Rfam assigns this 129-nucleotide sequence from Pteropus alecto to the family "Small nucleolar RNA SNORA25".
RNA sequence: AGGUCAUUUUAGAGAGGGUUUAUGAGGCUAUGAAGCCAGGAGCUCUUAACACUGUGACCAGAGGUUGAAGUUCACCAUGGGCCGCUAUAGUCUUUAAACAGCACUGUGUUCUCCUAAGGAGAUACAGCG
Numbered sequence: 001a002g003g004u005c006a007u008u009u010u011a012g013a014g015a016g017g018g019u020u021u022a023u024g025a026g027g028c029u030a031u032g033a034a035g036c037c038a039g040g041a042g043c044u045c046u047u048a049a050c051a052c053u054g055u056g057a058c059c060a061g062a063g064g065u066u067g068a069a070g071u072u073c074a075c076c077a078u079g080g081g082c083c084g085c086u087a088u089a090g091u092c093u094u095u096a097a098a099c100a101g102c103a104c105u106g107u108g109u110u111c112u113c114c115u116a117a118g119g120a121g122a123u124a125c126a127g128c129g
Stems, first nucleotide, its partner, number of pairs: 002059006014047008023039001026037002072122002075119002079115003087107005093101002
The base pairs follow the family's consensus structure, which was predicted with RNAfold. The family has 30 seed sequences and 1,129 matches in Rfam 15.1. ACA25 is a member of the H/ACA class of snoRNA that guide the sites of modification of uridines to pseudouridines.